[Rfam]
RNA sequence: AACAAUAUCCUGGUGCUGCCUGAGUGCCUCUUCAUAGACUCCAGCAUCAGUGAUUUUGUUG
Numbered sequence: 001a002a003c004a005a006u007a008u009c010c011u012g013g014u015g016c017u018g019c020c021u022g023a024g025u026g027c028c029u030c031u032u033c034a035u036a037g038a039c040u041c042c043a044g045c046a047u048c049a050g051u052g053a054u055u056u057u058g059u060u061g
Base pairs, nucleotide, nucleotide: 001060002059003058004057005056007054008053009052010050011049012048013047014046015045016044017043018042
RNA: mir-338 microRNA precursor family
Organism: Salmo salar